[Rfam]
RNA sequence: CUUUAGCCCUGAUUGCAGUGAAAAUCCUUUGCUGCCGGGGUUCGGCAGCAAAGAUUGUAACGGAAAGCGGGACGAUGC
Numbered sequence: 001c002u003u004u005a006g007c008c009c010u011g012a013u014u015g016c017a018g019u020g021a022a023a024a025u026c027c028u029u030u031g032c033u034g035c036c037g038g039g040g041u042u043c044g045g046c047a048g049c050a051a052a053g054a055u056u057g058u059a060a061c062g063g064a065a066a067g068c069g070g071g072a073c074g075a076u077g078c
Stems, first nucleotide, its partner, number of pairs: 009070003013066002018061002023056004029051008
RNA: Flavo-1 RNA
Organism: Flavobacterium succinicans